Rfam assigns this 371-nucleotide sequence from Septoria linicola to the family "Group I catalytic intron".
[Rfam]
RNA sequence: AUCUGCAGUUCACUCUGCGCCAGAAAGGGGCCCGCGAGGGUAGGUGGUAGCCGUCUUGAACCCUAGUCGGCGUCGAUCCUUCGAUGCUCGGCGAGACCGUCAAAUUGCGGGGAACGCGCGAAGCAGGCGGAUACUAAGCAGCGGCCGUGAGGCGCGCUGUGGCCGGACCUAAUCACUCCGGGUAUAGUAAAAAGUCCGCCUGUAUGUGCCAAUCCGCAGCCAAGCCUCUCUUCGGAGUGGAAGGUCCAGAGACUAAACGGCGGUCGGUCCCUGUUAGGAUCGAACGAUUAUACAAUGUAUAAUAUCUUGUAUAAUACCGUUCUACUUACCGGGGGCUUAAGAUAUAGUCCGGCCCCGCCCGAAAGGGAGGG
Numbered sequence: 001a002u003c004u005g006c007a008g009u010u011c012a013c014u015c016u017g018c019g020c021c022a023g024a025a026a027g028g029g030g031c032c033c034g035c036g037a038g039g040g041u042a043g044g045u046g047g048u049a050g051c052c053g054u055c056u057u058g059a060a061c062c063c064u065a066g067u068c069g070g071c072g073u074c075g076a077u078c079c080u081u082c083g084a085u086g087c088u089c090g091g092c093g094a095g096a097c098c099g100u101c102a103a104a105u106u107g108c109g110g111g112g113a114a115c116g117c118g119c120g121a122a123g124c125a126g127g128c129g130g131a132u133a134c135u136a137a138g139c140a141g142c143g144g145c146c147g148u149g150a151g152g153c154g155c156g157c158u159g160u161g162g163c164c165g166g167a168c169c170u171a172a173u174c175a176c177u178c179c180g181g182g183u184a185u186a187g188u189a190a191a192a193a194g195u196c197c198g199c200c201u202g203u204a205u206g207u208g209c210c211a212a213u214c215c216g217c218a219g220c221c222a223a224g225c226c227u228c229u230c231u232u233c234g235g236a237g238u239g240g241a242a243g244g245u246c247c248a249g250a251g252a253c254u255a256a257a258c259g260g261c262g263g264u265c266g267g268u269c270c271c272u273g274u275u276a277g278g279a280u281c282g283a284a285c286g287a288u289u290a291u292a293c294a295a296u297g298u299a300u301a302a303u304a305u306c307u308u309g310u311a312u313a314a315u316a317c318c319g320u321u322c323u324a325c326u327u328a329c330c331g332g333g334g335g336c337u338u339a340a341g342a343u344a345u346a347g348u349c350c351g352g353c354c355c356c357g358c359c360c361g362a363a364a365g366g367g368a369g370g371g
Base pairs, nucleotide, nucleotide: 005035006034008032010030011029013027039062040061041060095265096264097263098262099261101259106218107217108216109215110214111213116209117208118207119206120205219245220244225239249350251349252348253347254346255345267336268335269334270333271332272331273330275328276327277326278325356369358367359366360365
A reference for the family is Cate et al. (1996), "Crystal structure of a group I ribozyme domain: principles of RNA packing", Science.
NCBI's taxonomy places the organism under Eukaryota, leotiomyceta, Mycosphaerellales, Mycosphaerellaceae, Septoria.